[Rfam]
RNA sequence: GCCGGGAAGUGGAAGAAAAGAGGGCAUAAGAGCAGUGGGAGUGGGAACAUGGAGGAAAACCUAACUUGCUUUUCUUUCACCUCUUGUGUUGGAGGUGGGACUUGCUUUGGUGUUUUCCAAUGCCUCCCAUUCCUAUUGUUCUCAAGCACUCCUUCCUCUUCCUUUUUGGG
Numbered sequence: 001g002c003c004g005g006g007a008a009g010u011g012g013a014a015g016a017a018a019a020g021a022g023g024g025c026a027u028a029a030g031a032g033c034a035g036u037g038g039g040a041g042u043g044g045g046a047a048c049a050u051g052g053a054g055g056a057a058a059a060c061c062u063a064a065c066u067u068g069c070u071u072u073u074c075u076u077u078c079a080c081c082u083c084u085u086g087u088g089u090u091g092g093a094g095g096u097g098g099g100a101c102u103u104g105c106u107u108u109g110g111u112g113u114u115u116u117c118c119a120a121u122g123c124c125u126c127c128c129a130u131u132c133c134u135a136u137u138g139u140u141c142u143c144a145a146g147c148a149c150u151c152c153u154u155c156c157u158c159u160u161c162c163u164u165u166u167u168g169g170g
Stems, first nucleotide, its partner, number of pairs: 009161001011159003015155003020151003025146001027144001029142006036135011048122003052118001055117006
Description:
The record is a 170-nucleotide RNA sequence from Triticum aestivum, which matches "MIR2118 microRNA precursor family" in Rfam. The literature on the family includes a 2008 paper in Genome Res by Zhu et al., "A diverse set of microRNAs and microRNA-like small RNAs in developing rice grains".